Shown here is a 114-nucleotide RNA from Terrapene triunguis, a member of the family "mraW RNA". NCBI's taxonomy places the organism under Eukaryota, Opisthokonta, Eumetazoa, Sauria, Terrapene. It scores 56 bits against the family's covariance model.
[Rfam]
RNA sequence: UAGCCUUGCAGAUAUUGGGGCUCAGGCUGGAACCUGGGCUCUGAGACCCUUCCCCCUCGCUGGGUUUCAGAGCCCAGGCUCCGGCCUGAGCCUGAAUGUCUACACUGCCAUUUU
Numbered sequence: 001u002a003g004c005c006u007u008g009c010a011g012a013u014a015u016u017g018g019g020g021c022u023c024a025g026g027c028u029g030g031a032a033c034c035u036g037g038g039c040u041c042u043g044a045g046a047c048c049c050u051u052c053c054c055c056c057u058c059g060c061u062g063g064g065u066u067u068c069a070g071a072g073c074c075c076a077g078g079c080u081c082c083g084g085c086c087u088g089a090g091c092c093u094g095a096a097u098g099u100c101u102a103c104a105c106u107g108c109c110a111u112u113u114u
Stems, first nucleotide, its partner, number of pairs: 010101007018093002021090011033078017